[Rfam]
RNA sequence: GAAUGAAAGUGAUGAGCAUAAGGAAAAGUGAUGAUAUUUUUUUUUUUCAAAUGAACCAUAAAUUGUAUCCUUAUUCGUUAGGUUCUUUCUGAUUCAUUC
Number, nucleotide and partner (000 for none) at each position: 001g000002a000003a000004u096005g095006a094007a093008a000009g000010u000011g000012a000013u000014g000015a000016g000017c000018a000019u000020a000021a000022g000023g000024a000025a000026a000027a000028g000029u000030g000031a000032u000033g000034a000035u000036a000037u000038u000039u000040u000041u000042u000043u000044u000045u000046u000047u000048c000049a000050a000051a000052u000053g000054a000055a000056c000057c000058a000059u000060a000061a000062a000063u000064u000065g000066u000067a000068u000069c000070c000071u000072u000073a000074u000075u000076c000077g000078u000079u000080a000081g000082g000083u000084u000085c000086u000087u000088u000089c000090u000091g000092a000093u007094u006095c005096a004097u000098u000099c000
The record is a 99-nucleotide RNA sequence from Capsicum annuum, which matches "Small nucleolar RNA R32/R81/Z41" in Rfam. Taxonomically the source falls in Capsicum (Eukaryota, eudicotyledons, asterids, lamiids). The family has 6 seed sequences and 238 matches in Rfam 15.1. The match comes from Rfam's covariance-model search (45 bits). Rfam links the family to the GO terms nucleolus and RNA processing.